[Rfam]
RNA sequence: ACGCUUACCUGGCAGGGGAGCUACCAUGACCACAAAGGUGUCUUCCCCAGGGUGAGUUUUAUCCAUGGCACUCCUGAUGGGCUGGCCCCUGCCAUUUCCCCAAAUUUGGGGAAUUUGACUGUAAGUGAUGUGGUAGUGGGGGCUGUGUUGUCGCUCUCCUCUG
Numbered sequence: 001a002c003g004c005u006u007a008c009c010u011g012g013c014a015g016g017g018g019a020g021c022u023a024c025c026a027u028g029a030c031c032a033c034a035a036a037g038g039u040g041u042c043u044u045c046c047c048c049a050g051g052g053u054g055a056g057u058u059u060u061a062u063c064c065a066u067g068g069c070a071c072u073c074c075u076g077a078u079g080g081g082c083u084g085g086c087c088c089c090u091g092c093c094a095u096u097u098c099c100c101c102a103a104a105u106u107u108g109g110g111g112a113a114u115u116u117g118a119c120u121g122u123a124a125g126u127g128a129u130g131u132g133g134u135a136g137u138g139g140g141g142g143c144u145g146u147g148u149u150g151u152c153g154c155u156c157u158c159c160u161c162u163g
Stems, first nucleotide, its partner, number of pairs: 012122004016048003020044001025040003049090004054086001056083001058081001060079004092117001094115001095113003099109002138162005145154003
Notes:
Rfam assigns this 163-nucleotide RNA from Cricetulus griseus to the family "U1 spliceosomal RNA". It is annotated as a spliceosomal small nuclear RNA. U1 is a small nuclear RNA (snRNA) component of the spliceosome (involved in pre-mRNA splicing). Its 5' end forms complementary base pairs with the 5' splice junction, thus defining the 5' donor site of an intron. There are significant differences in sequence and secondary structure between metazoan and yeast U1 snRNAs, the latter being much longer (568 nucleotides as compared to 164 nucleotides in human). Nevertheless, secondary structure predictions suggest that all U1 snRNAs share a 'common core' consisting of helices I, II, the proximal region of III, and IV. This family does not contain the larger yeast sequences. Rfam 15.1 lists 40,184 matches to the family in 1,499 species. Lineage of the source: Eukaryota > Eumetazoa > Vertebrata > Theria > Cricetulus. The literature on the family includes a 2009 paper in Nature by Pomeranz Krummel et al., "Crystal structure of human spliceosomal U1 snRNP at 5.5 A resolution". It scores 80 bits against the family's covariance model.